The record is a 543-nucleotide part of an RNA from Rhodovulum sp. 12E13, which matches "Bacterial large subunit ribosomal RNA" in Rfam.
The match comes from Rfam's covariance-model search (2634 bits).
RNA sequence: GCGAGAAGGGCGUUUGGUGGAUGCCUUGGCAGCAAGAGGCGAUGAAGGACGUGAUACCCUGCGAUAAGCCAUGGGGAGCCGGGAAUAGGCUUUGAUCCAUGGAUCUCCGAAUGGGGCAACCCACCUGACAGACUGAUAUGAUCUGCCCUCGGCAGUUCAUAUCGGGCUGAACCAGGUACUUUGAGACUGAAUACAUAGGUUUCAAAGAGCGAACCCGGGGAACUGAAACAUCUAAGUACCCGGAGGAAAGGAAAUCAACAGAUACUCCCCCAGUAGUGGCGAGCGAACGGGGACCAGCCGAGCCGUAAGCGUGACCGGAACGACCUGGAAAGGUCGGCCAUAGCGGGUGACAGCCCCGUACGGGAAGCGUGAAGGACGCAUUAAGUAGGGCGGGACACGUGAAAUCCUGUCUGAAGAUCGGGGGACCACCCUCGAAGGCUAAGUACUCCUUGCUGACCGAUAGCGAACCAGUACCGUGAGGGAAAGGUGAAAAGCACCCCGACGAGGGGAGUGAAACAGUACCUGAAACCGAACGCCUACAAG
Numbered sequence: 001g002c003g004a005g006a007a008g009g010g011c012g013u014u015u016g017g018u019g020g021a022u023g024c025c026u027u028g029g030c031a032g033c034a035a036g037a038g039g040c041g042a043u044g045a046a047g048g049a050c051g052u053g054a055u056a057c058c059c060u061g062c063g064a065u066a067a068g069c070c071a072u073g074g075g076g077a078g079c080c081g082g083g084a085a086u087a088g089g090c091u092u093u094g095a096u097c098c099a100u101g102g103a104u105c106u107c108c109g110a111a112u113g114g115g116g117c118a119a120c121c122c123a124c125c126u127g128a129c130a131g132a133c134u135g136a137u138a139u140g141a142u143c144u145g146c147c148c149u150c151g152g153c154a155g156u157u158c159a160u161a162u163c164g165g166g167c168u169g170a171a172c173c174a175g176g177u178a179c180u181u182u183g184a185g186a187c188u189g190a191a192u193a194c195a196u197a198g199g200u201u202u203c204a205a206a207g208a209g210c211g212a213a214c215c216c217g218g219g220g221a222a223c224u225g226a227a228a229c230a231u232c233u234a235a236g237u238a239c240c241c242g243g244a245g246g247a248a249a250g251g252a253a254a255u256c257a258a259c260a261g262a263u264a265c266u267c268c269c270c271c272a273g274u275a276g277u278g279g280c281g282a283g284c285g286a287a288c289g290g291g292g293a294c295c296a297g298c299c300g301a302g303c304c305g306u307a308a309g310c311g312u313g314a315c316c317g318g319a320a321c322g323a324c325c326u327g328g329a330a331a332g333g334u335c336g337g338c339c340a341u342a343g344c345g346g347g348u349g350a351c352a353g354c355c356c357c358g359u360a361c362g363g364g365a366a367g368c369g370u371g372a373a374g375g376a377c378g379c380a381u382u383a384a385g386u387a388g389g390g391c392g393g394g395a396c397a398c399g400u401g402a403a404a405u406c407c408u409g410u411c412u413g414a415a416g417a418u419c420g421g422g423g424g425a426c427c428a429c430c431c432u433c434g435a436a437g438g439c440u441a442a443g444u445a446c447u448c449c450u451u452g453c454u455g456a457c458c459g460a461u462a463g464c465g466a467a468c469c470a471g472u473a474c475c476g477u478g479a480g481g482g483a484a485a486g487g488u489g490a491a492a493a494g495c496a497c498c499c500c501g502a503c504g505a506g507g508g509g510a511g512u513g514a515a516a517c518a519g520u521a522c523c524u525g526a527a528a529c530c531g532a533a534c535g536c537c538u539a540c541a542a543g
Stems, first nucleotide, its partner, number of pairs: 008538010023523001024487002028458002030455007037447002039210002047108003050063003069102007078090003113122003123177005179207005185201004214245001215243005225232002255262002265443001266293005276284002296440004309379004315363003321336005339343001345357003388412008419434005474481002497509004
Lineage of the source: Bacteria > Pseudomonadati > Pseudomonadota > Alphaproteobacteria > Rhodovulum.